[Rfam]
RNA sequence: AAAAAGAGCUUCUGUUGUGAGUGGCACACGUAGGGCAGCUCCAUUGCUCUUCGUACAGAAUAGACAUCAAGAGAUUUCAGAAGCAAAAUUUUUUGGUACCCAGGCAGCGGGUGAUCAUUGGUCCCGGUGCCCCA
Numbered sequence: 001a002a003a004a005a006g007a008g009c010u011u012c013u014g015u016u017g018u019g020a021g022u023g024g025c026a027c028a029c030g031u032a033g034g035g036c037a038g039c040u041c042c043a044u045u046g047c048u049c050u051u052c053g054u055a056c057a058g059a060a061u062a063g064a065c066a067u068c069a070a071g072a073g074a075u076u077u078c079a080g081a082a083g084c085a086a087a088a089u090u091u092u093u094u095g096g097u098a099c100c101c102a103g104g105c106a107g108c109g110g111g112u113g114a115u116c117a118u119u120g121g122u123c124c125c126g127g128u129g130c131c132c133c134a
Stems, first nucleotide, its partner, number of pairs: 008084005013026005028054003032050007058077004103131003107128002110125002113123004